[Rfam]
RNA sequence: GCGAGUUCCCAGGGGAGUCCCGACCGCGGGGCUGAGAGUGGGCGGCGACGGCGCCCCGACCCUUCGAACCUGAUCCGGAUCAUGCCGGCGCAGGGAGGGACAGGACGCCACCG
Numbered sequence: 001g002c003g004a005g006u007u008c009c010c011a012g013g014g015g016a017g018u019c020c021c022g023a024c025c026g027c028g029g030g031g032c033u034g035a036g037a038g039u040g041g042g043c044g045g046c047g048a049c050g051g052c053g054c055c056c057c058g059a060c061c062c063u064u065c066g067a068a069c070c071u072g073a074u075c076c077g078g079a080u081c082a083u084g085c086c087g088g089c090g091c092a093g094g095g096a097g098g099g100a101c102a103g104g105a106c107g108c109c110a111c112c113g
Base pairs, nucleotide, nucleotide: 007100008099009098010097011063012062013061014060017032018031019030020029021028040056041055042054043053069094070093071092072091075088076087077086078085
This 113-nucleotide RNA sequence from Futiania mangrovi belongs to the Rfam family "TPP riboswitch aptamer (THI element)".